[Rfam]
RNA sequence: GGUCACCCGUGAACCACGGGGGGCUUAACAUCAAGGGCGAUGAUUGCGGGUAAACUCGCAGCAACGCUCAAGCUAAACGGAAGACAGAAA
Number, nucleotide and partner (000 for none) at each position: 001g025002g024003u023004c022005a000006c021007c020008c019009g000010u000011g000012a000013a000014c000015c000016a000017c000018g000019g008020g007021g006022g004023g003024c002025u001026u000027a000028a000029c000030a000031u000032c000033a000034a000035g069036g068037g067038c066039g065040a000041u000042g000043a000044u064045u063046g062047c061048g000049g000050g000051u000052a000053a000054a000055c000056u000057c000058g000059c000060a000061g047062c046063a045064a044065c039066g038067c037068u036069c035070a000071a000072g000073c000074u000075a000076a000077a000078c000079g000080g000081a000082a000083g000084a000085c000086a000087g000088a000089a000090a000